Background: The family of this 142-nucleotide RNA sequence from Paenibacillus larvae is "c-di-AMP riboswitch aptamer (ydaO/yuaA leader)".

RNA sequence: UUUUAAUAAAAGCCGAAUCUUGCUCUUCUACAUGAGGAACAGGUACGGGGGACGAUAUGCUGUGGGGUGAAUUUGCAAUAUUGUGCAUUAGGGAAUACCUCUUCCCGAACCACUAACCUCGGAGGCUACGUACAGGAGGGAA
Numbered sequence: 001u002u003u004u005a006a007u008a009a010a011a012g013c014c015g016a017a018u019c020u021u022g023c024u025c026u027u028c029u030a031c032a033u034g035a036g037g038a039a040c041a042g043g044u045a046c047g048g049g050g051g052a053c054g055a056u057a058u059g060c061u062g063u064g065g066g067g068u069g070a071a072u073u074u075g076c077a078a079u080a081u082u083g084u085g086c087a088u089u090a091g092g093g094a095a096u097a098c099c100u101c102u103u104c105c106c107g108a109a110c111c112a113c114u115a116a117c118c119u120c121g122g123a124g125g126c127u128a129c130g131u132a133c134a135g136g137a138g139g140g141a142a
Base pairs, nucleotide, nucleotide: 011127012126013125014124019043020042021041022040046121047120048119049118050117066111067110074087075086076085091106092105093104094103
Rfam links the family to the GO terms regulation of gene expression and cyclic-di-AMP binding.